Annotation: The record is a 100-nucleotide RNA sequence from Alkalibaculum bacchi, which matches "THF (Tetrahydrofolate) riboswitch aptamer" in Rfam. It scores 82 bits against the family's covariance model. A reference for the family is Trausch and Batey (2014), "A disconnect between high-affinity binding and efficient regulation by antifolates and purines in the tetrahydrofolate riboswitch", Chem Biol. Pairs were carried over by alignment from the consensus structure, which is taken from published work. Rfam 15.1 lists 747 matches to the family in 747 species. The organism belongs to Alkalibaculum, within Bacteria. Tetrahydrofolate (THF) riboswitch was first reported for Ames et al. as an RNA motif in 5' untranslated (5'-UTR)regions of folate transport and biosynthesis genes in Firmicutes genomes.
[Rfam]
RNA sequence: AGCAGAGUAGGAAAUAGCGCGUUAAGUGCCGUUUGAAUGGGAAGUUGUCGACGGACGAAAAAUCAUCACGAUUUGCGGUACUAUUUCUGCAUCCACUGCC
Numbered sequence: 001a002g003c004a005g006a007g008u009a010g011g012a013a014a015u016a017g018c019g020c021g022u023u024a025a026g027u028g029c030c031g032u033u034u035g036a037a038u039g040g041g042a043a044g045u046u047g048u049c050g051a052c053g054g055a056c057g058a059a060a061a062a063u064c065a066u067c068a069c070g071a072u073u074u075g076c077g078g079u080a081c082u083a084u085u086u087c088u089g090c091a092u093c094c095a096c097u098g099c100c
Base pairs, nucleotide, nucleotide: 002099003098004097005096010088011087012086013085014084015083016082017081019079020077021076022075026056027055029054030053031052032051033050035049036048040094041093042092044090060074061073062072063071